[Rfam]
About this RNA
The family of this 68-nucleotide RNA sequence from Cyclopterus lumpus is "Small nucleolar RNA SNORD26". Rfam links the family to the GO terms RNA processing and nucleolus. A reference for the family is Tycowski et al. (1996), "A small nucleolar RNA requirement for site-specific ribose methylation of rRNA in Xenopus", Proc Natl Acad Sci U S A. The family's RNA type in Rfam is C/D-box small nucleolar RNA. Its Rfam clan is "SNORD26 clan".
RNA sequence: CUACAGUGAUGUUGUAUUUGAACUCUCUUACUGAACAUUUUGUGGAAACGUCUAACAUUCUGAGUAGC
Numbered sequence: 001c002u003a004c005a006g007u008g009a010u011g012u013u014g015u016a017u018u019u020g021a022a023c024u025c026u027c028u029u030a031c032u033g034a035a036c037a038u039u040u041u042g043u044g045g046a047a048a049c050g051u052c053u054a055a056c057a058u059u060c061u062g063a064g065u066a067g068c
Stems, first nucleotide, its partner, number of pairs: 001067004